The record is a 136-nucleotide RNA from Castor canadensis, which matches "Small nucleolar RNA SNORD94" in Rfam.
RNA sequence: CAGGUGUGAUGAUUGGCGCAGGGGUACAGACCUCAGCUAAGUCAUGGGAGCUGAAUGUAUGUGUUUCACAUCUGUCCUGCAUGUAGCAGGUUGAUGGCGAACACUUACAUGAGACUGUUGCCUCAAUCUGAGUCUG
Numbered sequence: 001c002a003g004g005u006g007u008g009a010u011g012a013u014u015g016g017c018g019c020a021g022g023g024g025u026a027c028a029g030a031c032c033u034c035a036g037c038u039a040a041g042u043c044a045u046g047g048g049a050g051c052u053g054a055a056u057g058u059a060u061g062u063g064u065u066u067c068a069c070a071u072c073u074g075u076c077c078u079g080c081a082u083g084u085a086g087c088a089g090g091u092u093g094a095u096g097g098c099g100a101a102c103a104c105u106u107a108c109a110u111g112a113g114a115c116u117g118u119u120g121c122c123u124c125a126a127u128c129u130g131a132g133u134c135u136g
Stems, first nucleotide, its partner, number of pairs: 001136005
For this family Rfam cites "Purified box C/D snoRNPs are able to reproduce site-specific 2'-O-methylation of target RNA in vitro" (Galardi et al., Mol Cell Biol, 2002). It scores 145 bits against the family's covariance model. NCBI's taxonomy places the organism under Eukaryota, Metazoa, Bilateria, Theria, Castor.